A member of the RNA family "mir-574 microRNA precursor family" from Myotis davidii, 83 nucleotides long.
NCBI's taxonomy places the organism under Eukaryota, Opisthokonta, Teleostomi, Yangochiroptera, Myotis.
The base pairs follow the family's consensus structure, which was predicted with RNAalifold.
RNA sequence: AGGCCUGCAGAGAGAGAGGCAGCGUCUGAUCUGCAGCCUCAGUGGCAGCUGUUGACCAGCCGUUUCCUCUCUCUUUCUUUCCA
Number, nucleotide and partner (000 for none) at each position: 001a000002g000003g000004c000005c000006u000007g000008c000009a000010g075011a074012g073013a072014g071015a070016g069017a068018g067019g066020c000021a064022g063023c000024g061025u000026c059027u058028g057029a000030u055031c054032u000033g000034c051035a050036g049037c048038c000039u000040c000041a000042g000043u000044g000045g000046c000047a000048g037049c036050u035051g034052u000053u000054g031055a030056c000057c028058a027059g026060c000061c024062g000063u022064u021065u000066c019067c018068u017069c016070u015071c014072u013073c012074u011075u010076u000077c000078u000079u000080u000081c000082c000083a000